[Rfam]
RNA sequence: ACAACAUUCGGACUGUCGGUCUACCGAGCAACAUCACCCGCUCAAGGAAGAUCUUCCCUUUGUCCA
Numbered sequence: 001a002c003a004a005c006a007u008u009c010g011g012a013c014u015g016u017c018g019g020u021c022u023a024c025c026g027a028g029c030a031a032c033a034u035c036a037c038c039c040g041c042u043c044a045a046g047g048a049a050g051a052u053c054u055u056c057c058c059u060u061u062g063u064c065c066a
Base pairs, nucleotide, nucleotide: 004063005062006061010057011056012055015052016051017050020048021047022046026043027042028041029040
RNA: mir-2774 microRNA precursor family
Organism: Bombyx mori